[Rfam]
The record is a 146-nucleotide RNA from Chanos chanos, which matches "Small nucleolar RNA SNORA79" in Rfam. ACA65 (SNORA79) is a member of the H/ACA class of snoRNAs that guide the sites of modification of uridines to pseudouridines. This snoRNA was identified by computational screening and its expression in mouse experimentally verified by Northern blot and primer extension analysis. On this family, see Schattner et al., RNA 2006: "A computational screen for mammalian pseudouridylation guide H/ACA RNAs". Pairs were carried over by alignment from the consensus structure, which was predicted with RNAalifold. NCBI's taxonomy places the organism under Eukaryota, Actinopteri, Otomorpha, Chanoidei, Chanos.
RNA sequence: UGACGACAGUUCCUCCUGCUGCCCGUAGCUUUGGCACGUCAGGAUUUUAUGUCGUCACAGACUAAACCAGAGUCUGUUUCACCCAGGGUGGGCCAGGUAGCGGGGACUGCCUCCCUCCACCCUGGUUUUUGCGGGACUCUACAUAC
Number, nucleotide and partner (000 for none) at each position: 001u057002g056003a055004c054005g053006a052007c051008a050009g000010u000011u000012c000013c000014u044015c043016c042017u041018g040019c000020u036021g035022c034023c033024c000025g000026u000027a000028g000029c000030u000031u000032u000033g023034g022035c021036a020037c000038g000039u000040c018041a017042g016043g015044a014045u000046u000047u000048u000049a000050u008051g007052u006053c005054g004055u003056c002057a001058c000059a000060g000061a000062c000063u000064a000065a000066a000067c000068c000069a000070g000071a138072g137073u136074c135075u134076g000077u000078u000079u000080c000081a000082c000083c125084c124085a123086g122087g121088g120089u119090g118091g117092g116093c000094c000095a000096g112097g111098u000099a000100g108101c000102g000103g000104g000105g000106a000107c000108u100109g000110c000111c097112u096113c000114c000115c000116u092117c091118c090119a089120c088121c087122c086123u085124g084125g083126u000127u000128u000129u000130u000131g000132c000133g000134g075135g074136a073137c072138u071139c000140u000141a000142c000143a000144u000145a000146c000